[Rfam]
Nucleotides: 114
Base pairs, nucleotide, nucleotide: 011026012025013024014023015022016021028051029050030049033046034045036042037041087101088100089099090098091097092096
Number, partner (000 for none) and nucleotide at each position: 001000u002000u003000a004000a005000a006000c007000a008000a009000g010000a011026a012025g013024a014023a015022a016021c017000a018000g019000c020000c021016g022015u023014u024013u025012c026011u027000c028051a029050c030049c031000u032000u033046g034045c035000a036042g037041u038000u039000a040000u041037g042036c043000u044000a045034g046033u047000a048000a049030g050029g051028u052000u053000a054000c055000a056000c057000u058000g059000u060000a061000a062000u063000a064000a065000a066000a067000u068000u069000a070000u071000u072000c073000u074000a075000u076000g077000a078000a079000u080000g081000c082000a083000g084000u085000a086000g087101g088100a089099c090098g091097g092096c093000u094000u095000u096092g097091c098090c099089g100088u101087c102000c103000u104000u105000u106000u107000a108000u109000u110000a111000u112000u113000a114000u
Notes:
The record is a 114-nucleotide RNA from Clostridium senegalense, which matches "Ribosomal protein L20 leader" in Rfam. NCBI's taxonomy places the organism under Bacteria, Bacillati, Bacillota, Clostridiaceae, Clostridium.